[Rfam]
RNA sequence: ACCCUCUGGUUCGCUUUCCCAUCAGACCUUGCUGCUGAACUUGGUGGUCAUAAAGGAAAGAGUACACUGAAGCCGGCCUCACAGUGAUGUCGUCAGAAUAGAACAUAGGGCCAGACUCAAACAAGC
Numbered sequence: 001a002c003c004c005u006c007u008g009g010u011u012c013g014c015u016u017u018c019c020c021a022u023c024a025g026a027c028c029u030u031g032c033u034g035c036u037g038a039a040c041u042u043g044g045u046g047g048u049c050a051u052a053a054a055g056g057a058a059a060g061a062g063u064a065c066a067c068u069g070a071a072g073c074c075g076g077c078c079u080c081a082c083a084g085u086g087a088u089g090u091c092g093u094c095a096g097a098a099u100a101g102a103a104c105a106u107a108g109g110g111c112c113a114g115a116c117u118c119a120a121a122c123a124a125g126c
Stems, first nucleotide, its partner, number of pairs: 003056003007052001019047005025040001028037001073114001075112005088105003
This 126-nucleotide RNA sequence from Mus musculus belongs to the Rfam family "Small nucleolar RNA SNORA61". A search with the family's covariance model found it, with a score of 78 bits. Pairs were carried over by alignment from the consensus structure, which was predicted with PFOLD. The organism belongs to Mus, within Eukaryota. From the family's description: ACA61 is a member of the H/ACA class of snoRNA that guide the sites of modification of uridines to pseudouridines. Gene Ontology terms of the family: nucleolus and RNA processing. The family has 25 seed sequences and 881 matches in Rfam 15.1.